[Rfam]
RNA sequence: CUUCAGUGAAGUUAAUCCGCACAUGUGUCGACACGAUUUUCUGGGUGCCUCUCGCAGGUUGAAAGUCGGGAUACAUGGAGGCCCAAC
Number, nucleotide and partner (000 for none) at each position: 001c000002u000003u000004c000005a000006g000007u000008g000009a000010a000011g000012u000013u000014a000015a000016u000017c000018c000019g000020c000021a000022c077023a076024u075025g074026u073027g072028u071029c070030g000031a000032c000033a000034c068035g067036a066037u065038u064039u063040u062041c061042u000043g000044g000045g000046u000047g059048c058049c057050u056051c000052u000053c000054g000055c000056a050057g049058g048059u047060u000061g041062a040063a039064a038065g037066u036067c035068g034069g000070g029071a028072u027073a026074c025075a024076u023077g022078g000079a000080g000081g000082c000083c000084c000085a000086a000087c000